A member of the RNA family "MIR2593 microRNA precursor family" from Medicago truncatula, 116 nucleotides long. The match comes from Rfam's covariance-model search (98 bits). Taxonomically the source falls in Medicago (Eukaryota, Mesangiospermae, Fabales, Trifolieae).
Nucleotides: 116
Base pairs, nucleotide, nucleotide: 002115003114004113005112006111007110009108010107011106012105013104019099020098021097022096023095024094025093026092028090029089030088031087032086033085034084035083036082037081038080039079040078041077042076043075044074045073050068051067052066053065
Number, partner (000 for none) and nucleotide at each position: 001000a002115u003114a004113u005112a006111a007110g008000c009108a010107a011106a012105a013104a014000a015000a016000c017000u018000a019099c020098a021097u022096u023095u024094u025093a026092g027000g028090u029089u030088c031087a032086u033085u034084c035083a036082u037081u038080u039079a040078a041077u042076g043075a044074u045073g046000u047000a048000u049000g050068u051067g052066g053065u054000c055000u056000a057000u058000a059000a060000u061000a062000a063000a064000g065053a066052u067051c068050a069000u070000a071000u072000g073045c074044a075043u076042c077041a078040u079039u080038a081037a082036a083035u084034g085033a086032a087031u088030g089029a090028a091000c092026c093025u094024a095023a096022a097021a098020u099019g100000u101000a102000a103000u104013u105012u106011u107010u108009u109000a110007c111006u112005u113004a114003u115002a116000u